[Rfam]
RNA sequence: UAACAGCAAGAUCCAUACCCCUAAACUCCCUAGUUUGAUGGAUGGCAACUAUGUUGCUGUCCCUUUUUU
Number, nucleotide and partner (000 for none) at each position: 001u000002a000003a000004c000005a035006g034007c033008a000009a031010g000011a000012u000013c000014c000015a000016u000017a000018c000019c000020c000021c000022u000023a000024a000025a000026c000027u000028c000029c000030c000031u009032a000033g007034u006035u005036u000037g000038a000039u000040g062041g061042a060043u059044g058045g057046c056047a055048a054049c053050u000051a000052u000053g049054u048055u047056g046057c045058u044059g043060u042061c041062c040063c000064u000065u000066u000067u000068u000069u000

Shown here is a 69-nucleotide RNA from Bacillus sp. T33-2, a member of the family "Listeria sRNA sbrA". Rfam classes the family as a small RNA. On this family, see Toledo-Arana et al., Nature 2009: "The Listeria transcriptional landscape from saprophytism to virulence". Lineage of the source: Bacteria > Bacillota > Bacilli > Bacillaceae > Bacillus. It scores 51 bits against the family's covariance model.